RNA: SAH (S-adenosyl-L-homocysteine) riboswitch aptamer
Organism: Pseudomonas sp. ABC1
RNA sequence: CUGUCCGAGGGGCGCUGCAGCAAGCAUGGCUUGUCAGGCUCGGAUGGGGCGUUAACCACACGCAUCAACGGCGCCCAUCGGAC
Number, nucleotide and partner (000 for none) at each position: 001c000002u046003g045004u044005c043006c042007g041008a040009g000010g000011g000012g000013c000014g000015c000016u000017g000018c000019a000020g000021c033022a032023a031024g030025c029026a000027u000028g000029g025030c024031u023032u022033g021034u000035c000036a000037g000038g000039c000040u008041c007042g006043g005044a004045u003046g002047g000048g000049g000050c000051g000052u000053u000054a000055a000056c000057c000058a000059c000060a000061c000062g000063c000064a000065u000066c000067a000068a000069c000070g000071g000072c000073g000074c000075c000076c000077a000078u000079c000080g000081g000082a000083c000